The record is an 83-nucleotide sequence from Solanum commersonii, which matches "MIR8024 microRNA precursor family" in Rfam. The family has 2 seed sequences and 661 matches in Rfam 15.1.

RNA sequence: UUUUUAAUUUCAAAGACUUCAACUUGCAGACUUGAAGAAUUUGAAGACUUCAGUUUGUAUACUUGGCUGAAUUUAAAGAAACU
Numbered sequence: 001u002u003u004u005u006a007a008u009u010u011c012a013a014a015g016a017c018u019u020c021a022a023c024u025u026g027c028a029g030a031c032u033u034g035a036a037g038a039a040u041u042u043g044a045a046g047a048c049u050u051c052a053g054u055u056u057g058u059a060u061a062c063u064u065g066g067c068u069g070a071a072u073u074u075a076a077a078g079a080a081a082c083u
Stems, first nucleotide, its partner, number of pairs: 001081002009077002012074003017069001019066003025059004032053006
Background:
A search with the family's covariance model found it, with a score of 58 bits. Pairs were carried over by alignment from the consensus structure, which was predicted with RNAalifold. The organism belongs to Solanum, within Eukaryota.